[Rfam]
RNA: mir-1905 microRNA precursor family
RNA sequence: UGGUCUGCUGCUGGAUGCGUUUGAUGGUCGCUCCCUUGGGGCCCACCACCAGUCCCACCACGCGGUAGGGUAC
Numbered sequence: 001u002g003g004u005c006u007g008c009u010g011c012u013g014g015a016u017g018c019g020u021u022u023g024a025u026g027g028u029c030g031c032u033c034c035c036u037u038g039g040g041g042c043c044c045a046c047c048a049c050c051a052g053u054c055c056c057a058c059c060a061c062g063c064g065g066u067a068g069g070g071u072a073c
Stems, first nucleotide, its partner, number of pairs: 004069008012060003017055001019053003023049001025048004030043001032041003